[Rfam]
Shown here is a 66-nucleotide RNA from Carlito syrichta, a member of the family "Edr gene ribosomal frameshift signal".
RNA sequence: GGGAAACUGCUCGGCCCCGCUGUAGAGGGACCUCCAGCGACCGGGCCAGAAGCAACAAGGUCCCCU
Numbered sequence: 001g002g003g004a005a006a007c008u009g010c011u012c013g014g015c016c017c018c019g020c021u022g023u024a025g026a027g028g029g030a031c032c033u034c035c036a037g038c039g040a041c042c043g044g045g046c047c048a049g050a051a052g053c054a055a056c057a058a059g060g061u062c063c064c065c066u
Stems, first nucleotide, its partner, number of pairs: 013047005018039005027064007
A search with the family's covariance model found it, with a score of 85 bits.
It is annotated as a frameshift element.
The source organism's lineage runs through Eukaryota, Vertebrata, Gnathostomata, Haplorrhini and Carlito.
The base pairs follow the family's consensus structure, which is taken from published work.
The literature on the family includes a 2005 paper in Nucleic Acids Res by Manktelow et al., "Characterization of the frameshift signal of Edr, a mammalian example of programmed -1 ribosomal frameshifting".